[Rfam]
RNA sequence: AACUUUACGCAGUGACAGUAUCGUAGCCAAUGAGGUUUAUCCGAGGCGCGAUUAUUGCUCAUUAAAAAACAAGACAGCAGGCCCCAAAUGGAGCCACUUAUGCUAAUUAAAGUCCACGUCACCAAACG
Numbered sequence: 001a002a003c004u005u006u007a008c009g010c011a012g013u014g015a016c017a018g019u020a021u022c023g024u025a026g027c028c029a030a031u032g033a034g035g036u037u038u039a040u041c042c043g044a045g046g047c048g049c050g051a052u053u054a055u056u057g058c059u060c061a062u063u064a065a066a067a068a069a070c071a072a073g074a075c076a077g078c079a080g081g082c083c084c085c086a087a088a089u090g091g092a093g094c095c096a097c098u099u100a101u102g103c104u105a106a107u108u109a110a111a112g113u114c115c116a117c118g119u120c121a122c123c124a125a126a127c128g
Stems, first nucleotide, its partner, number of pairs: 020052005026047003034042002076104003080095003084091002117128003

The record is a 128-nucleotide sequence from Callorhinus ursinus, which matches "U4 spliceosomal RNA" in Rfam.
U4 small nuclear RNA (U4 snRNA) is a component of the major U2-dependent spliceosome.
Clan: U4 clan.